[Rfam]
RNA sequence: ACUUCUCUUUAAAAGCACCACAUUUCAACUGAAACCAAUUCCUUGGAUUAGUAAUGAGAAUGUUGGCCGUCAAGAGAAGGAGAGAAUUGCAGUUUAAAUGGGUGAGACCAAGGAGGGCCUCUUUCUUAAUGCCCAAUGUCUUGUGUCUCAAUCCAAACUGCUACAUUU
Numbered sequence: 001a002c003u004u005c006u007c008u009u010u011a012a013a014a015g016c017a018c019c020a021c022a023u024u025u026c027a028a029c030u031g032a033a034a035c036c037a038a039u040u041c042c043u044u045g046g047a048u049u050a051g052u053a054a055u056g057a058g059a060a061u062g063u064u065g066g067c068c069g070u071c072a073a074g075a076g077a078a079g080g081a082g083a084g085a086a087u088u089g090c091a092g093u094u095u096a097a098a099u100g101g102g103u104g105a106g107a108c109c110a111a112g113g114a115g116g117g118c119c120u121c122u123u124u125c126u127u128a129a130u131g132c133c134c135a136a137u138g139u140c141u142u143g144u145g146u147c148u149c150a151a152u153c154c155a156a157a158c159u160g161c162u163a164c165a166u167u168u
Base pairs, nucleotide, nucleotide: 018066019065021062022061023060024059025058028055030053031052032049033048035046036045037044038043089161090160091159092158093157094156095155110139112137115134116133117132
RNA: Small nucleolar RNA SNORA81